This 585-nucleotide part of an RNA from Nocardioides perillae belongs to the Rfam family "Bacterial small subunit ribosomal RNA". Clan: SSU clan.

RNA sequence: UGACGGGGGCCCGCACAAGCGGCGGAGCAUGCGGAUUAAUUCGAUGCAACGCGAAGAACCUUACCUGGGUUUGACAUACGCCGGAAACACCUAGAGAUAGGUGCCCUUUUUGUCGGUGUACAGGUGGUGCAUGGCUGUCGUCAGCUCGUGUCGUGAGAUGUUGGGUUAAGUCCCGCAACGAGCGCAACCCUCGUCCUAUGUUGCCAGCACGUCGUGGUGGGGACUCAUAGGAGACUGCCGGGGUCAACUCGGAGGAAGGUGGGGAUGACGUCAAGUCAUCAUGCCCCUUAUGUCCAGGGCUUCACGCAUGCUACAAUGGCCGGUACAAAGGGCUGCGAUCCCGUGAGGGGGAGCGAAUCCCAAAAAGCCGGUCUCAGUUCGGAUUGGGGUCUGCAACUCGACCCCAUGAAGUCGGAGUCGCUAGUAAUCGCAGAUCAGCAACGCUGCGGUGAAUACGUUCCCGGGCCUUGUACACACCGCCCGUCACGUCACGAAAGUCGGCAACACCCGAAGCCGGUGGCCCAACCCGCAAGGGGGGGAGCCGUCGAAGGUGGGGCUGGCGAUUGGGACGAAGUCGUAACAAGG
Numbered sequence: 001u002g003a004c005g006g007g008g009g010c011c012c013g014c015a016c017a018a019g020c021g022g023c024g025g026a027g028c029a030u031g032c033g034g035a036u037u038a039a040u041u042c043g044a045u046g047c048a049a050c051g052c053g054a055a056g057a058a059c060c061u062u063a064c065c066u067g068g069g070u071u072u073g074a075c076a077u078a079c080g081c082c083g084g085a086a087a088c089a090c091c092u093a094g095a096g097a098u099a100g101g102u103g104c105c106c107u108u109u110u111u112g113u114c115g116g117u118g119u120a121c122a123g124g125u126g127g128u129g130c131a132u133g134g135c136u137g138u139c140g141u142c143a144g145c146u147c148g149u150g151u152c153g154u155g156a157g158a159u160g161u162u163g164g165g166u167u168a169a170g171u172c173c174c175g176c177a178a179c180g181a182g183c184g185c186a187a188c189c190c191u192c193g194u195c196c197u198a199u200g201u202u203g204c205c206a207g208c209a210c211g212u213c214g215u216g217g218u219g220g221g222g223a224c225u226c227a228u229a230g231g232a233g234a235c236u237g238c239c240g241g242g243g244u245c246a247a248c249u250c251g252g253a254g255g256a257a258g259g260u261g262g263g264g265a266u267g268a269c270g271u272c273a274a275g276u277c278a279u280c281a282u283g284c285c286c287c288u289u290a291u292g293u294c295c296a297g298g299g300c301u302u303c304a305c306g307c308a309u310g311c312u313a314c315a316a317u318g319g320c321c322g323g324u325a326c327a328a329a330g331g332g333c334u335g336c337g338a339u340c341c342c343g344u345g346a347g348g349g350g351g352a353g354c355g356a357a358u359c360c361c362a363a364a365a366a367g368c369c370g371g372u373c374u375c376a377g378u379u380c381g382g383a384u385u386g387g388g389g390u391c392u393g394c395a396a397c398u399c400g401a402c403c404c405c406a407u408g409a410a411g412u413c414g415g416a417g418u419c420g421c422u423a424g425u426a427a428u429c430g431c432a433g434a435u436c437a438g439c440a441a442c443g444c445u446g447c448g449g450u451g452a453a454u455a456c457g458u459u460c461c462c463g464g465g466c467c468u469u470g471u472a473c474a475c476a477c478c479g480c481c482c483g484u485c486a487c488g489u490c491a492c493g494a495a496a497g498u499c500g501g502c503a504a505c506a507c508c509c510g511a512a513g514c515c516g517g518u519g520g521c522c523c524a525a526c527c528c529g530c531a532a533g534g535g536g537g538g539g540a541g542c543c544g545u546c547g548a549a550g551g552u553g554g555g556g557c558u559g560g561c562g563a564u565u566g567g568g569a570c571g572a573a574g575u576c577g578u579a580a581c582a583a584g585g
Stems, first nucleotide, its partner, number of pairs: 001474002003471003007468007015458002019421005024314001026312008034303002040055004064298007077120002080117005088103006106112001123287002126285004132281002134276003137272001139270002144183006150159003162175004189264004194232007204221002208219003235255002238252005318373007330361003335354002340349003380411001385406007427450007477584001479581001482577002487571004492566003497561006505553004513546001515544004521539003526535002
The base pairs follow the family's consensus structure, which is taken from published work.